[Rfam]
RNA sequence: UUUUCCCAUCCAGCGCCAUGCACCUGAACAUUCAGGUUAACGAGGAAAAGGGUUAUCGAAAAUUCGGCGGACGCCCUUUCGUAGAUUCCGCUGCGAGAUAUACCGGCAAAUAUGCGGGUAACUGCAAAACAAAUACGGUAUAACGGAAGAAU
Numbered sequence: 001u002u003u004u005c006c007c008a009u010c011c012a013g014c015g016c017c018a019u020g021c022a023c024c025u026g027a028a029c030a031u032u033c034a035g036g037u038u039a040a041c042g043a044g045g046a047a048a049a050g051g052g053u054u055a056u057c058g059a060a061a062a063u064u065c066g067g068c069g070g071a072c073g074c075c076c077u078u079u080c081g082u083a084g085a086u087u088c089c090g091c092u093g094c095g096a097g098a099u100a101u102a103c104c105g106g107c108a109a110a111u112a113u114g115c116g117g118g119u120a121a122c123u124g125c126a127a128a129a130c131a132a133a134u135a136c137g138g139u140a141u142a143a144c145g146g147a148a149g150a151a152u
Stems, first nucleotide, its partner, number of pairs: 022037006047079005056067004080095005099142007113126005
Dot-bracket structure: .....................((((((....)))))).........(((((....((((....)))).......)))))(((((......)))))...(((((((.......(((((....))))).........)))))))..........
This 152-nucleotide sequence from Roseburia sp. CAG:182 belongs to the Rfam family "glmS glucosamine-6-phosphate activated ribozyme aptamer".
This entry contains a glucosamine-6-phosphate activated ribozyme that is found in the mRNA for GlmS. GlmS is an enzyme that uses fructose-6-phosphate and glutamine to generate glucosamine-6-phosphate. The ribozyme catalyses self cleavage of the glmS mRNA that is thought to regulate GlmS activity.
The family's RNA type in Rfam is riboswitch.